RNA sequence: CUAGACCGAAGCUGCCAAGGUGCGUGAUCCCUCGGUGAUGCCUUGAGUGUUGCUUCGCCAAAAAACAACCACACGGCCUAGCCGAAUUUCUCAUU
Numbered sequence: 001c002u003a004g005a006c007c008g009a010a011g012c013u014g015c016c017a018a019g020g021u022g023c024g025u026g027a028u029c030c031c032u033c034g035g036u037g038a039u040g041c042c043u044u045g046a047g048u049g050u051u052g053c054u055u056c057g058c059c060a061a062a063a064a065a066c067a068a069c070c071a072c073a074c075g076g077c078c079u080a081g082c083c084g085a086a087u088u089u090c091u092c093a094u095u
Stems, first nucleotide, its partner, number of pairs: 016045007029035002074084004
This 95-nucleotide RNA sequence from Giardia duodenalis belongs to the Rfam family "Giardia U4 spliceosomal RNA".
A reference for the family is Hudson et al. (2012), "Evolutionarily divergent spliceosomal snRNAs and a conserved non-coding RNA processing motif in Giardia lamblia", Nucleic Acids Res.
Lineage of the source: Eukaryota > Metamonada > Fornicata > Diplomonadida > Giardia duodenalis.
By type it is a spliceosomal small nuclear RNA.
It is one of the family's seed sequences.